[Rfam]
RNA sequence: CAAUAGAAUAGGAUUUCUCAAGUGUGGUCGGCACACUCCCAAACAGAAAGGGGGUGAUGCUGAAUGACCGUUUUUGAAUCAUUAAUGUUUGCGAUUGGUUUUGCGAGCUUAAUCGUAACCAUUCUGUCAUUUAGAUCAAAAAAAUAAUCCACCCUUGAGUUCAGAGGCUCUGGUGGAUUAUUUCUUCCUUAGCUGAUCCCCUUUGAGGGAACCGUCUAUUGCUGACCGGACAUGUAGCAGCAUGUUCG
Numbered sequence: 001c002a003a004u005a006g007a008a009u010a011g012g013a014u015u016u017c018u019c020a021a022g023u024g025u026g027g028u029c030g031g032c033a034c035a036c037u038c039c040c041a042a043a044c045a046g047a048a049a050g051g052g053g054g055u056g057a058u059g060c061u062g063a064a065u066g067a068c069c070g071u072u073u074u075u076g077a078a079u080c081a082u083u084a085a086u087g088u089u090u091g092c093g094a095u096u097g098g099u100u101u102u103g104c105g106a107g108c109u110u111a112a113u114c115g116u117a118a119c120c121a122u123u124c125u126g127u128c129a130u131u132u133a134g135a136u137c138a139a140a141a142a143a144a145u146a147a148u149c150c151a152c153c154c155u156u157g158a159g160u161u162c163a164g165a166g167g168c169u170c171u172g173g174u175g176g177a178u179u180a181u182u183u184c185u186u187c188c189u190u191a192g193c194u195g196a197u198c199c200c201c202u203u204u205g206a207g208g209g210a211a212c213c214g215u216c217u218a219u220u221g222c223u224g225a226c227c228g229g230a231c232a233u234g235u236a237g238c239a240g241c242a243u244g245u246u247c248g
Stems, first nucleotide, its partner, number of pairs: 001221005007215001009214001011212001015196002017159006024152001026149003034056002037054004066128003070124001079094002103119001163185003197210004227248009